[Rfam]
This 75-nucleotide RNA sequence from Cylindrospermum sp. NIES-4074 belongs to the Rfam family "Cyano-1 RNA".
RNA sequence: AGUUGUGUGAGGAGUAUUGUUGAAUAUAAAAAGCGCUUGGGGUGGAAACACGGUAACACUCCCAGGCGCUUUUUA
Numbered sequence: 001a002g003u004u005g006u007g008u009g010a011g012g013a014g015u016a017u018u019g020u021u022g023a024a025u026a027u028a029a030a031a032a033g034c035g036c037u038u039g040g041g042g043u044g045g046a047a048a049c050a051c052g053g054u055a056a057c058a059c060u061c062c063c064a065g066g067c068g069c070u071u072u073u074u075a
Base pairs, nucleotide, nucleotide: 030072031071032070033069034068037065038064039063040062041061042059043058044057